[Rfam]
Source information:
Rfam assigns this 108-nucleotide RNA from Lentilactobacillus hilgardii to the family "TPP riboswitch aptamer (THI element)".
RNA sequence: GCACAACACUAGGGGUGCCGCCAGAAGCGGUUGAGAUGGAUCUGCUCGAUCUGGUCCCUUGGAACCUGUAAGACAAUGCUUGCGUAGGGAAAGUGACAGUGAGGGUGU
Numbered sequence: 001g002c003a004c005a006a007c008a009c010u011a012g013g014g015g016u017g018c019c020g021c022c023a024g025a026a027g028c029g030g031u032u033g034a035g036a037u038g039g040a041u042c043u044g045c046u047c048g049a050u051c052u053g054g055u056c057c058c059u060u061g062g063a064a065c066c067u068g069u070a071a072g073a074c075a076a077u078g079c080u081u082g083c084g085u086a087g088g089g090a091a092a093g094u095g096a097c098a099g100u101g102a103g104g105g106u107g108u
Base pairs, nucleotide, nucleotide: 007095008094009093010092011059012058013057014056016053017031018030019029020028021027038052039051040050041049042048065088066087067086068085069082070081071080072079
Dot-bracket structure: ......((((((((.((((((.....)))))......(((((.....))))))..)))).....((((((((......))))..))))...)))).............
Rfam describes the family as follows. Vitamin B(1) in its active form thiamin pyrophosphate (TPP) is an essential coenzyme that is synthesised by coupling of pyrimidine and thiazole moieties in bacteria.